RNA sequence: CCCUCAAAGGGACCUGAGGGGACCCCCGGGCUCUGUCCCCCCCAUGGGGGGGACAGAGCCCGGGGGUCCCCUCAGGUCCCUUUGAGGG
Numbered sequence: 001c002c003c004u005c006a007a008a009g010g011g012a013c014c015u016g017a018g019g020g021g022a023c024c025c026c027c028g029g030g031c032u033c034u035g036u037c038c039c040c041c042c043c044a045u046g047g048g049g050g051g052g053a054c055a056g057a058g059c060c061c062g063g064g065g066g067u068c069c070c071c072u073c074a075g076g077u078c079c080c081u082u083u084g085a086g087g088g
Stems, first nucleotide, its partner, number of pairs: 001088009011078002016073027